RNA sequence: GCACCUGGCUCUUUCCUAUUCCUCCCUGUGCAGUGCAGGCCUGGGGGCACUUGGUGCUACAGCACAGCAGUGGAAAUCCAGAUGGGUUCUUCUGAGCUCAUCUCUACACCUCUGCAACACCA
Numbered sequence: 001g002c003a004c005c006u007g008g009c010u011c012u013u014u015c016c017u018a019u020u021c022c023u024c025c026c027u028g029u030g031c032a033g034u035g036c037a038g039g040c041c042u043g044g045g046g047g048c049a050c051u052u053g054g055u056g057c058u059a060c061a062g063c064a065c066a067g068c069a070g071u072g073g074a075a076a077u078c079c080a081g082a083u084g085g086g087u088u089c090u091u092c093u094g095a096g097c098u099c100a101u102c103u104c105u106a107c108a109c110c111u112c113u114g115c116a117a118c119a120c121c122a
Stems, first nucleotide, its partner, number of pairs: 001057005013047006021039002067115004072110001080103008

Rfam assigns this 122-nucleotide sequence from Melanocharis versteri to the family "Small nucleolar RNA SNORA55".
From the family's description: ACA55 is a member of the H/ACA class of snoRNA that guide the sites of modification of uridines to pseudouridines.
Rfam links the family to the GO terms nucleolus and RNA processing.